[Rfam]
RNA sequence: GUUCCCUAGGAUGCUUCAAUACCAUGCUAAUACUGAAAUUUAGUUGAUUGAAUACUUUGUUCUAUAAUGACUGAGGGAACA
Numbered sequence: 001g002u003u004c005c006c007u008a009g010g011a012u013g014c015u016u017c018a019a020u021a022c023c024a025u026g027c028u029a030a031u032a033c034u035g036a037a038a039u040u041u042a043g044u045u046g047a048u049u050g051a052a053u054a055c056u057u058u059g060u061u062c063u064a065u066a067a068u069g070a071c072u073g074a075g076g077g078a079a080c081a
Base pairs, nucleotide, nucleotide: 001080002079003078004077005076006075007074
This 81-nucleotide RNA sequence from Acer yangbiense belongs to the Rfam family "Small nucleolar RNA snoR53Y". Rfam links the family to the GO terms RNA processing and nucleolus. It is annotated as a C/D-box small nucleolar RNA. The literature on the family includes a 2001 paper in RNA by Brown et al., "Multiple snoRNA gene clusters from Arabidopsis". The match comes from Rfam's covariance-model search (60 bits).